A member of the RNA family "Small nucleolar RNA SNORD101" from Trichechus manatus, 72 nucleotides long. Lineage of the source: Eukaryota > Opisthokonta > Bilateria > Eutheria > Trichechus manatus. A reference for the family is Vitali et al. (2003), "Identification of 13 novel human modification guide RNAs", Nucleic Acids Res. The family's RNA type in Rfam is C/D-box small nucleolar RNA. Its family is annotated with RNA processing and nucleolus in the Gene Ontology.

[Rfam]
RNA sequence: GUUCGAAUGAUGACUUGUGUUGUCGGAUACCCCUUCACUCGCUUUAUGAGUGAAACAUACAGUCUGACAAAC
Numbered sequence: 001g002u003u004c005g006a007a008u009g010a011u012g013a014c015u016u017g018u019g020u021u022g023u024c025g026g027a028u029a030c031c032c033c034u035u036c037a038c039u040c041g042c043u044u045u046a047u048g049a050g051u052g053a054a055a056c057a058u059a060c061a062g063u064c065u066g067a068c069a070a071a072c
Stems, first nucleotide, its partner, number of pairs: 001072003005068001